[Rfam]
RNA sequence: AGCAGGCAUGUGCGGGAUGAUUAACGCGGGUUAAUUAACGUAGGUCGCCCUCACGGGCGGCAGCCGCAAGUCGGCGGGCUCCUACGACCCGGGGCCUGCUUUUUG
Numbered sequence: 001a002g003c004a005g006g007c008a009u010g011u012g013c014g015g016g017a018u019g020a021u022u023a024a025c026g027c028g029g030g031u032u033a034a035u036u037a038a039c040g041u042a043g044g045u046c047g048c049c050c051u052c053a054c055g056g057g058c059g060g061c062a063g064c065c066g067c068a069a070g071u072c073g074g075c076g077g078g079c080u081c082c083u084a085c086g087a088c089c090c091g092g093g094g095c096c097u098g099c100u101u102u103u104u105g
Base pairs, nucleotide, nucleotide: 001100002099003098004097005096006095007094011092013091014090015089016088039086040085041084042083043082044061045060046059047058048057049056050055064074065073066072
RNA: DUF3800-VII RNA